[Rfam]
Shown here is a 245-nucleotide RNA sequence from Streptomyces jumonjinensis, a member of the family "Streptomyces sRNA 4677". It scores 194 bits against the family's covariance model. Rfam describes the family as follows. Located in the intergenic region between anti-sigma factor SCO4677 gene and a putative regulatory protein gene SCO4676. scr4677 expression requires the SCO4677 activity and scr4677 sRNA itself seem to affect the levels of the SCO4676-associated transcripts. Lineage of the source: Bacteria > Bacillati > Actinomycetes > Streptomycetaceae > Streptomyces. The family has 12 seed sequences and 563 matches in Rfam 15.1.
RNA sequence: CGCUCCGGUGCCCCGGGCGGUCUCCCCCAAGAAACGAACGAGAGAAAAGAACCCCGCCAAACCCCACCCCUCCCGCCCGUGGCCGGUCUCACCCGCACGGGUGAACAUCCCCAACUGCGCUGGUAAACGGCCGGGUUGGAUGACUUAGGCUCGCCGCGAGAAACGACCGCAGACAUGCGUCGGCCCCCGCCGGGACGGCAAUCCCAGUGCGAGGGCCUGACCACCGAGGAAGAAGACGCUUCCCG
Numbered sequence: 001c002g003c004u005c006c007g008g009u010g011c012c013c014c015g016g017g018c019g020g021u022c023u024c025c026c027c028c029a030a031g032a033a034a035c036g037a038a039c040g041a042g043a044g045a046a047a048a049g050a051a052c053c054c055c056g057c058c059a060a061a062c063c064c065c066a067c068c069c070c071u072c073c074c075g076c077c078c079g080u081g082g083c084c085g086g087u088c089u090c091a092c093c094c095g096c097a098c099g100g101g102u103g104a105a106c107a108u109c110c111c112c113a114a115c116u117g118c119g120c121u122g123g124u125a126a127a128c129g130g131c132c133g134g135g136u137u138g139g140a141u142g143a144c145u146u147a148g149g150c151u152c153g154c155c156g157c158g159a160g161a162a163a164c165g166a167c168c169g170c171a172g173a174c175a176u177g178c179g180u181c182g183g184c185c186c187c188c189g190c191c192g193g194g195a196c197g198g199c200a201a202u203c204c205c206a207g208u209g210c211g212a213g214g215g216c217c218u219g220a221c222c223a224c225c226g227a228g229g230a231a232g233a234a235g236a237c238g239c240u241u242c243c244c245g
Stems, first nucleotide, its partner, number of pairs: 007225004016077004089104006119155001121153003182217005188211003192205004228243005